[Rfam]
RNA: Glycine riboswitch aptamer
RNA sequence: CGACUCUGAAAAGCAGGCGUGCCCAUCGCGCCUCGCCCAAGGGGAAAGCCGGCUCGCCGGUGAAACUCUCAGGCCCAUGACAGAGGGGGA
Numbered sequence: 001c002g003a004c005u006c007u008g009a010a011a012a013g014c015a016g017g018c019g020u021g022c023c024c025a026u027c028g029c030g031c032c033u034c035g036c037c038c039a040a041g042g043g044g045a046a047a048g049c050c051g052g053c054u055c056g057c058c059g060g061u062g063a064a065a066c067u068c069u070c071a072g073g074c075c076c077a078u079g080a081c082a083g084a085g086g087g088g089g090a
Stems, first nucleotide, its partner, number of pairs: 001088001004085005015033006035074003039069001042068003048061002